[Rfam]
Shown here is a 56-nucleotide sequence from Pantoea sp. At-9b, a member of the family "Xanthine riboswitch aptamer (NMT1 RNA)".
The literature on the family includes a 2020 paper in RNA by Yu and Breaker, "A bacterial riboswitch class senses xanthine and uric acid to regulate genes associated with purine oxidation".
It is one of the family's seed sequences.
Lineage of the source: Bacteria > Pseudomonadota > Gammaproteobacteria > Erwiniaceae > Pantoea.
The family's consensus secondary structure is taken from published work.
Its family is annotated with purine nucleobase binding in the Gene Ontology.

RNA sequence: AAAAUGAGUAGAAGCUGUCAGCCGCGGUCAUUACCCGGUAGGUCAUUGCUCGAUCG
Numbered sequence: 001a002a003a004a005u006g007a008g009u010a011g012a013a014g015c016u017g018u019c020a021g022c023c024g025c026g027g028u029c030a031u032u033a034c035c036c037g038g039u040a041g042g043u044c045a046u047u048g049c050u051c052g053a054u055c056g
Base pairs, nucleotide, nucleotide: 005052006051007050008049009048010047015041019042021039022038023037024036026034